[Rfam]
RNA sequence: AUGCCUUAAACUGAUGAGUAAGGAAAAUAACGAUGCGGGGUGACGCCCGCGUCCUCGCUGAUACUCGCGAAAUGAAUUUUUGAACGGGUACAGGUCUGACCUGAGGGUGUCCAGCCUACUCUGCAGGAUGCCCCGGGAACCAGGAUCUGCCCC
Numbered sequence: 001a002u003g004c005c006u007u008a009a010a011c012u013g014a015u016g017a018g019u020a021a022g023g024a025a026a027a028u029a030a031c032g033a034u035g036c037g038g039g040g041u042g043a044c045g046c047c048c049g050c051g052u053c054c055u056c057g058c059u060g061a062u063a064c065u066c067g068c069g070a071a072a073u074g075a076a077u078u079u080u081u082g083a084a085c086g087g088g089u090a091c092a093g094g095u096c097u098g099a100c101c102u103g104a105g106g107g108u109g110u111c112c113a114g115c116c117u118a119c120u121c122u123g124c125a126g127g128a129u130g131c132c133c134c135g136g137g138a139a140c141c142a143g144g145a146u147c148u149g150c151c152c153c
Base pairs, nucleotide, nucleotide: 004023005022006021007020008019032053033052034051035050036049037048038047039046055070056069057068058067086152087151088150089149092148093147094146095145096144097143101137102136105133106132107131108130109129111127112126114124115123
RNA: U12 minor spliceosomal RNA
Organism: Astyanax mexicanus